[Rfam]
RNA: Actino-pnp RNA
RNA sequence: GCCGGUCCUCGGUAGUGGCUCCCGGGAGCAGGAGUUGCCGGGGGCUUCGAUCGAAGACCGGC
Number, nucleotide and partner (000 for none) at each position: 001g062002c061003c060004g059005g058006u057007c056008c000009u054010c053011g052012g051013u050014a000015g000016u000017g046018g045019c044020u043021c042022c041023c040024g039025g038026g000027a036028g035029c034030a000031g000032g000033a000034g029035u028036u027037g000038c025039c024040g023041g022042g021043g020044g019045c018046u017047u000048c000049g000050a013051u012052c011053g010054a009055a000056g007057a006058c005059c004060g003061g002062c001